Rfam assigns this 135-nucleotide sequence from Pseudomonas sp. 8AS to the family "Pseudomonas sRNA P14".
RNA sequence: CUGUAUGUUUUUUAAACAGAAAUUAAUCUGCACGGGGCUCAAGUGAAAAAAAAACGCCACGCUUGCGCAAGGUCAGUUUACUUACUACAGGUAAUGGGUACUAUGUAGCCCGGCUAAUUUCCCAGUGUUGGGAAA
Numbered sequence: 001c002u003g004u005a006u007g008u009u010u011u012u013u014a015a016a017c018a019g020a021a022a023u024u025a026a027u028c029u030g031c032a033c034g035g036g037g038c039u040c041a042a043g044u045g046a047a048a049a050a051a052a053a054a055c056g057c058c059a060c061g062c063u064u065g066c067g068c069a070a071g072g073u074c075a076g077u078u079u080a081c082u083u084a085c086u087a088c089a090g091g092u093a094a095u096g097g098g099u100a101c102u103a104u105g106u107a108g109c110c111c112g113g114c115u116a117a118u119u120u121c122c123c124a125g126u127g128u129u130g131g132g133a134a135a
Stems, first nucleotide, its partner, number of pairs: 037068002041064005072114003076110001079107003083103002086100003090095001118135006
For this family Rfam cites "Identification of 17 Pseudomonas aeruginosa sRNAs and prediction of sRNA-encoding genes in 10 diverse pathogens using the bioinformatic tool sRNAPredict2" (Livny et al., Nucleic Acids Res, 2006).
The base pairs follow the family's consensus structure, which was predicted with WAR.